[Rfam]
RNA sequence: GAUGCUGUUCCGUGCUUCCUUACUUCCCAUAGUGGAUGCGACGUAUGGAAUGUAAAGAAGUAUGGAGCUGCGCC
Number, nucleotide and partner (000 for none) at each position: 001g000002a000003u000004g000005c000006u000007g068008u067009u066010c065011c064012g063013u062014g061015c060016u059017u058018c057019c000020u055021u054022a053023c052024u000025u050026c000027c048028c047029a046030u045031a044032g000033u000034g000035g000036a000037u000038g000039c000040g000041a000042c000043g000044u031045a030046u029047g028048g027049a000050a025051u000052g023053u022054a021055a020056a000057g018058a017059a016060g015061u014062a013063u012064g011065g010066a009067g008068c007069u000070g000071c000072g000073c000074c000
The record is a 74-nucleotide RNA from Apis mellifera, which matches "mir-1 microRNA precursor family" in Rfam. A reference for the family is Lee and Ambros (2001), "An extensive class of small RNAs in Caenorhabditis elegans", Science. Lineage of the source: Eukaryota > Metazoa > Bilateria > Altocrustacea > Apis.